[Rfam]
RNA sequence: GCAACGGUUUAGCUCAGUGGUUACUUCUUCUCAAAUGUUGACUUCUAACUCCACGACCUCCGGGUCAGGUGUUCGAACCACGGGCGCUGUCCGCUGCUUUU
Numbered sequence: 001g002c003a004a005c006g007g008u009u010u011a012g013c014u015c016a017g018u019g020g021u022u023a024c025u026u027c028u029u030c031u032c033a034a035a036u037g038u039u040g041a042c043u044u045c046u047a048a049c050u051c052c053a054c055g056a057c058c059u060c061c062g063g064g065u066c067a068g069g070u071g072u073u074c075g076a077a078c079c080a081c082g083g084g085c086g087c088u089g090u091c092c093g094c095u096g097c098u099u100u101u
Base pairs, nucleotide, nucleotide: 002096003095005093006092007091012085013084014083015082017081018080019079020078025077026076027075
Vault RNA: a 101-nucleotide RNA from Sander lucioperca. Pairs were carried over by alignment from the consensus structure, which is taken from published work. It is annotated as a non-coding RNA gene. This family of RNAs are found as part of the enigmatic vault ribonucleoprotein complex. The complex consists of a major vault protein (MVP), two minor vault proteins (VPARP and TEP1), and several small untranslated RNA molecules. It has been suggested that the vault complex is involved in drug resistance.